[Rfam]
RNA sequence: ACCUGUUGCGGGUCUCCUUCUGUGAUGCCCCGCAACGCCAGAAACACAUCCGUGUCACGGGAAGAUCGUGGCACUUCAGGGCGUU
Numbered sequence: 001a002c003c004u005g006u007u008g009c010g011g012g013u014c015u016c017c018u019u020c021u022g023u024g025a026u027g028c029c030c031c032g033c034a035a036c037g038c039c040a041g042a043a044a045c046a047c048a049u050c051c052g053u054g055u056c057a058c059g060g061g062a063a064g065a066u067c068g069u070g071g072c073a074c075u076u077c078a079g080g081g082c083g084u085u
Base pairs, nucleotide, nucleotide: 004037005036006035007034008033009032010031011030012029014027015025016024052074053073054072055071056070057069058068059067

nrdJ RNA: an 85-nucleotide RNA from Streptomyces alboniger. The base pairs follow the family's consensus structure, which is taken from published work. A search with the family's covariance model found it, with a score of 71 bits. By type it is a small RNA. The source organism's lineage runs through Bacteria, Actinomycetota, Actinomycetes, Kitasatosporales and Streptomyces.